[Rfam]
RNA sequence: AGCUCAUCGAGAGGGACUGAGGGAUACGGCCCGUUGAAGUCCCGGCAACCGCCGCGCGAGCCUCCGACCGCCACCGUCGUGGCCCGGAUCCGCGGGGUGUGGUGCCAAAUCCGUCCCGAGCCGAGAGUCGGCCCCCGGGGAAGAUGAGAA
Number, nucleotide and partner (000 for none) at each position: 001a000002g000003c148004u147005c146006a145007u144008c143009g000010a000011g000012a000013g043014g042015g041016a040017c039018u000019g000020a000021g032022g031023g030024a000025u000026a114027c113028g112029g111030c023031c022032c021033g000034u000035u000036g000037a000038a000039g017040u016041c015042c014043c013044g106045g105046c104047a103048a000049c102050c101051g098052c097053c096054g000055c000056g000057c000058g000059a000060g000061c000062c000063u000064c000065c000066g000067a000068c000069c000070g000071c000072c000073a000074c000075c000076g000077u000078c000079g000080u000081g000082g000083c000084c000085c000086g000087g000088a000089u000090c000091c000092g000093c000094g000095g000096g053097g052098u051099g000100u000101g050102g049103u047104g046105c045106c044107a000108a000109a000110u142111c029112c028113g027114u026115c139116c138117c137118g136119a000120g134121c000122c000123g000124a000125g000126a000127g000128u000129c000130g000131g000132c000133c000134c120135c000136c118137g117138g116139g115140g000141a000142a110143g008144a007145u006146g005147a004148g003149a000150a000
This 150-nucleotide RNA sequence from Nocardioides pocheonensis belongs to the Rfam family "SAM riboswitch aptamer (S box leader)". NCBI's taxonomy places the organism under Bacteria, Actinomycetota, Propionibacteriales, Nocardioidaceae, Nocardioides. Rfam's curators write: The SAM riboswitch is found upstream of a number of genes which code for proteins involved in methionine or cysteine biosynthesis in Gram-positive bacteria.